Background
This 70-nucleotide RNA sequence from Pristionchus pacificus belongs to the Rfam family "mir-72 microRNA precursor family". Gene Ontology terms of the family: RISC complex and miRNA-mediated post-transcriptional gene silencing. Its Rfam clan is "mir-31 microRNA precursor family". Rfam's curators put it in the seed alignment. The source organism's lineage runs through Eukaryota, Opisthokonta, Bilateria, Rhabditida and Pristionchus.

RNA sequence: GUGAGGCAAGAUGUUGGCAUAGCUGAUGGUCGAAUUGAAGCAAUUCCGCUCUGCCACAUGUAGCCACGCA
Numbered sequence: 001g002u003g004a005g006g007c008a009a010g011a012u013g014u015u016g017g018c019a020u021a022g023c024u025g026a027u028g029g030u031c032g033a034a035u036u037g038a039a040g041c042a043a044u045u046c047c048g049c050u051c052u053g054c055c056a057c058a059u060g061u062a063g064c065c066a067c068g069c070a
Stems, first nucleotide, its partner, number of pairs: 005065003011059004016055003022049002025046002
Dot-bracket structure: ....(((...((((.(((...((.((..................)).))...)))))))...))).....